[Rfam]
Shown here is a 110-nucleotide RNA sequence from Cucurbita maxima, a member of the family "MIR162_1 microRNA precursor family". Its Rfam clan is "MIR167 microRNA precursor clan". The match comes from Rfam's covariance-model search (102 bits).

RNA sequence: GGUAGAGUCAGUGGAGGCAGCGGUUCAUCGACCUCUUCUUGGGAUUUGUACUGAUUUGUAUCACAAAAACACGAACCGGUCGAUAAACCUCUGCAUCCAGCGCUCCCACC
Numbered sequence: 001g002g003u004a005g006a007g008u009c010a011g012u013g014g015a016g017g018c019a020g021c022g023g024u025u026c027a028u029c030g031a032c033c034u035c036u037u038c039u040u041g042g043g044a045u046u047u048g049u050a051c052u053g054a055u056u057u058g059u060a061u062c063a064c065a066a067a068a069a070c071a072c073g074a075a076c077c078g079g080u081c082g083a084u085a086a087a088c089c090u091c092u093g094c095a096u097c098c099a100g101c102g103c104u105c106c107c108a109c110c
Base pairs, nucleotide, nucleotide: 013098014097015096018093019092020091022089023088024087025086027084028083029082030081031080032079033078036075037074038073
The family's consensus secondary structure was predicted with RNAalifold. Rfam links the family to the GO terms miRNA-mediated post-transcriptional gene silencing and RISC complex. For this family Rfam cites "MicroRNAs in plants" (Reinhart et al., Genes Dev, 2002). Rfam 15.1 lists 270 matches to the family in 158 species.